Annotation
A member of the RNA family "c-di-AMP riboswitch aptamer (ydaO/yuaA leader)" from Streptomyces sp. SAT1, 190 nucleotides long. The pairing is the family consensus, mapped onto this sequence. It scores 52 bits against the family's covariance model.
RNA sequence: GAUGACCACCCACCGACAGCUCAUGGCAGGAGCGGGGGACCCAGGUAAGUCGCCGGGCCGGAGCGCCGUACGUCCUACGUCGUACGCCGCGCCGGAACGGCUCGGGGUGAAGCCGUGCUCUGAGGAGCCGGCCGGGCACCUCCCCGCCCGAACCCGACAGCUCACCUCGCAGGCGACGGAGAGGAAAUCC
Numbered sequence: 001g002a003u004g005a006c007c008a009c010c011c012a013c014c015g016a017c018a019g020c021u022c023a024u025g026g027c028a029g030g031a032g033c034g035g036g037g038g039a040c041c042c043a044g045g046u047a048a049g050u051c052g053c054c055g056g057g058c059c060g061g062a063g064c065g066c067c068g069u070a071c072g073u074c075c076u077a078c079g080u081c082g083u084a085c086g087c088c089g090c091g092c093c094g095g096a097a098c099g100g101c102u103c104g105g106g107g108u109g110a111a112g113c114c115g116u117g118c119u120c121u122g123a124g125g126a127g128c129c130g131g132c133c134g135g136g137c138a139c140c141u142c143c144c145c146g147c148c149c150g151a152a153c154c155c156g157a158c159a160g161c162u163c164a165c166c167u168c169g170c171a172g173g174c175g176a177c178g179g180a181g182a183g184g185a186a187a188u189c190c
Stems, first nucleotide, its partner, number of pairs: 011175001013173002020029001032170006042104001105155003113131003134149004